Shown here is a 369-nucleotide RNA from Enterococcus faecalis, a member of the family "Bacterial RNase P class B". Rfam describes the family as follows. Ribonuclease P (RNase P) is a ubiquitous endoribonuclease, found in archaea, bacteria and eukarya as well as chloroplasts and mitochondria.

RNA sequence: AUUUUCGGGUGAUCGCGGUUUGCUUUUGCAAGCUGAGGAAAGUCCAUGCUCGCACAAGCUGAGAUGCUUGUAGUGUUCGUGCUUAGCGAAAUCAUAAGCUAAGGUACUCUUUUAGAGUAACGGCAGGAAAAAUGACUAAGGUUUCGACUAUGUCAAAGUAUCCUUGAAAGUGCCACAGUGACGAAGCGAUGUGGGAAACUCCAUCGGUGGAACGCGGUAAACCCCUCGAGCGAGCAACCCAAACAAUGGUAGGGGCGCUCUUCUAAAGGAAAUGAACGAGUAGAAGAGGCAGAGUUUACUCUGCAGAUAGAUGAUGACCGUCACCAAUUUUUCCUGAAGAAUUGGUGAUACAGAACAUGGCUUAUAGAA
Numbered sequence: 001a002u003u004u005u006c007g008g009g010u011g012a013u014c015g016c017g018g019u020u021u022g023c024u025u026u027u028g029c030a031a032g033c034u035g036a037g038g039a040a041a042g043u044c045c046a047u048g049c050u051c052g053c054a055c056a057a058g059c060u061g062a063g064a065u066g067c068u069u070g071u072a073g074u075g076u077u078c079g080u081g082c083u084u085a086g087c088g089a090a091a092u093c094a095u096a097a098g099c100u101a102a103g104g105u106a107c108u109c110u111u112u113u114a115g116a117g118u119a120a121c122g123g124c125a126g127g128a129a130a131a132a133u134g135a136c137u138a139a140g141g142u143u144u145c146g147a148c149u150a151u152g153u154c155a156a157a158g159u160a161u162c163c164u165u166g167a168a169a170g171u172g173c174c175a176c177a178g179u180g181a182c183g184a185a186g187c188g189a190u191g192u193g194g195g196a197a198a199c200u201c202c203a204u205c206g207g208u209g210g211a212a213c214g215c216g217g218u219a220a221a222c223c224c225c226u227c228g229a230g231c232g233a234g235c236a237a238c239c240c241a242a243a244c245a246a247u248g249g250u251a252g253g254g255g256c257g258c259u260c261u262u263c264u265a266a267a268g269g270a271a272a273u274g275a276a277c278g279a280g281u282a283g284a285a286g287a288g289g290c291a292g293a294g295u296u297u298a299c300u301c302u303g304c305a306g307a308u309a310g311a312u313g314a315u316g317a318c319c320g321u322c323a324c325c326a327a328u329u330u331u332u333c334c335u336g337a338a339g340a341a342u343u344g345g346u347g348a349u350a351c352a353g354a355a356c357a358u359g360g361c362u363u364a365u366a367g368a369a
Stems, first nucleotide, its partner, number of pairs: 004369003007365001008319003012315003016035006040363003044360005049234005054071006077229003081225001082103006104121001105119006122224002125164004133155004140149003170222002172218003187206005193200002238254003258288007289304006321348011